[Rfam]
RNA: L31-Actinobacteria ribosomal protein leader
Organism: Aeromicrobium sp.
RNA sequence: UUGGUUCUGGUUCACGCGCCGCAACCCGCAGCACGACCCAGCGACC
Dot-bracket structure: ..(((.((((....((.((.((.....)).)).))..))))..)))